The record is a 95-nucleotide RNA sequence from Prunus yedoensis, which matches "Small nucleolar RNA R64/Z200 family" in Rfam. For this family Rfam cites "Purified box C/D snoRNPs are able to reproduce site-specific 2'-O-methylation of target RNA in vitro" (Galardi et al., Mol Cell Biol, 2002). Lineage of the source: Eukaryota > Viridiplantae > Spermatophyta > Mesangiospermae > Prunus yedoensis.
[Rfam]
RNA sequence: AUUCUGCAGUGAUGAAUUCUGGAUAAAUUUCACAUGUCAGACUUCAGAGAUUUCACAAUCAAUGAGAAUUAAAAUUCAAGUCUUCUGAGCAGAAU
Dot-bracket structure: (((((((.........................................((((....))))............................)))))))

Notes
A search with the family's covariance model found it, with a score of 90 bits.